[Rfam]
RNA sequence: AACAAUCGUCGUAAGAACAAGAGAAGCAGAUAUAUUCUAUACCCGAUAAGUACCAUACGCCAAUGGGA
Numbered sequence: 001a002a003c004a005a006u007c008g009u010c011g012u013a014a015g016a017a018c019a020a021g022a023g024a025a026g027c028a029g030a031u032a033u034a035u036u037c038u039a040u041a042c043c044c045g046a047u048a049a050g051u052a053c054c055a056u057a058c059g060c061c062a063a064u065g066g067g068a
Stems, first nucleotide, its partner, number of pairs: 003021001006019001009016002042067003050058003
RNA: Plastid-clpP 5UTR RNA
Organism: Musa balbisiana